[Rfam]
RNA sequence: UCCUUAUCAAGAGCAGGGGAGGAACUUGGUCCCGCGAUCCUGCAGCAACCUGUCAGUAUUGACAAGGUGCUCACUCCAACAGACGUCAGGGUCUGGAAGAUGAGGA
Number, nucleotide and partner (000 for none) at each position: 001u106002c105003c104004u103005u102006a101007u100008c099009a000010a000011g000012a000013g043014c042015a041016g040017g039018g000019g000020a000021g032022g031023a030024a000025c000026u079027u078028g077029g076030u023031c022032c021033c000034g000035c000036g000037a000038u000039c017040c016041u015042g014043c013044a071045g070046c069047a068048a000049c067050c066051u064052g063053u062054c061055a000056g000057u000058a000059u000060u000061g054062a053063c052064a051065a000066g050067g049068u047069g046070c045071u044072c000073a000074c000075u098076c029077c028078a027079a026080c095081a094082g093083a092084c091085g000086u000087c000088a000089g000090g000091g084092u083093c082094u081095g080096g000097a000098a075099g008100a007101u006102g005103a004104g003105g002106a001
The record is a 106-nucleotide sequence from Halobacillus sp. BBL2006, which matches "SAM riboswitch aptamer (S box leader)" in Rfam. It scores 82 bits against the family's covariance model. The base pairs follow the family's consensus structure, which is taken from published work. The source organism's lineage runs through Bacteria, Bacillati, Bacilli, Bacillaceae and Halobacillus.